[Rfam]
RNA: Plastid-psbA-4 3UTR RNA
RNA sequence: GAACGUAAAGGAGCAAUAAUUCAUUUCUUGUUCUAUCAAGAGGGUUGAUAUUGCUCCUUUACU
Dot-bracket structure: ......((((((((((((......((((((......))))))......))))))))))))...